Rfam assigns this 142-nucleotide RNA sequence from Aliidiomarina sanyensis to the family "Molybdenum/Tungsten riboswitch aptamer (Moco RNA motif)". The organism belongs to Aliidiomarina, within Bacteria.
RNA sequence: AUACGCCUUGUACGCCGAGCCCGAAGCUCUUAGGCCAUGUGUUUGCUGGUGAUGAAUUCGGAGCCGUGGCAAUUCUGCCACCAGGGUCGUCUUGGAAACGAGGCGACCUCCCGACUAGGAAAGGUGUGGAUAUGCAACUGAC
Numbered sequence: 001a002u003a004c005g006c007c008u009u010g011u012a013c014g015c016c017g018a019g020c021c022c023g024a025a026g027c028u029c030u031u032a033g034g035c036c037a038u039g040u041g042u043u044u045g046c047u048g049g050u051g052a053u054g055a056a057u058u059c060g061g062a063g064c065c066g067u068g069g070c071a072a073u074u075c076u077g078c079c080a081c082c083a084g085g086g087u088c089g090u091c092u093u094g095g096a097a098a099c100g101a102g103g104c105g106a107c108c109u110c111c112c113g114a115c116u117a118g119g120a121a122a123g124g125u126g127u128g129g130a131u132a133u134g135c136a137a138c139u140g141a142c
Base pairs, nucleotide, nucleotide: 011128012127013126014125015124016123019064020063022061025058026057028055029054034050035049036048066081067080068079069078070077084109085108086107087106088105089104090103091102092101093100094099110119111118